The family of this 105-nucleotide RNA sequence from Prunus dulcis is "MIR6274 microRNA precursor family". Taxonomically the source falls in Prunus (Eukaryota, Mesangiospermae, fabids, Rosaceae). The match comes from Rfam's covariance-model search (91 bits). Rfam 15.1 lists 342 matches to the family in 8 species.

[Rfam]
RNA sequence: GGAUAUCUCUUUUUGCUAUCUCCGACCAAUAACGCAAUGGCACGUAGGAUAACUUUUCCACGUGUUAUUGUGUUAUUGGCCGGGAAUAGCAAAACAGUGUUAUUC
Number, nucleotide and partner (000 for none) at each position: 001g000002g104003a103004u102005a000006u000007c000008u000009c000010u000011u094012u093013u092014u091015g090016c089017u088018a087019u086020c000021u084022c083023c082024g081025a000026c079027c078028a077029a076030u075031a074032a073033c072034g071035c070036a069037a068038u067039g066040g065041c064042a063043c062044g061045u060046a000047g058048g057049a056050u000051a000052a000053c000054u000055u000056u049057u048058c047059c000060a045061c044062g043063u042064g041065u040066u039067a038068u037069u036070g035071u034072g033073u032074u031075a030076u029077u028078g027079g026080c000081c024082g023083g022084g021085a000086a019087u018088a017089g016090c015091a014092a013093a012094a011095c000096a000097g000098u000099g000100u000101u000102a004103u003104u002105c000